[Rfam]
RNA sequence: AAACAAUAAGCCUGAAGUAUUACCCAACCCUUCCCACAAUAGUUGUGGGAAGGGUUGGGCAAUACUUCAGGCUUAUUGUAAA
Numbered sequence: 001a002a003a004c005a006a007u008a009a010g011c012c013u014g015a016a017g018u019a020u021u022a023c024c025c026a027a028c029c030c031u032u033c034c035c036a037c038a039a040u041a042g043u044u045g046u047g048g049g050a051a052g053g054g055u056u057g058g059g060c061a062a063u064a065c066u067u068c069a070g071g072c073u074u075a076u077u078g079u080a081a082a
Base pairs, nucleotide, nucleotide: 003079004078005077006076007075009073010072011071012070013069014068015067017065018064019063020062021061023059024058025057026056028054029053030052
RNA: mir-87 microRNA precursor family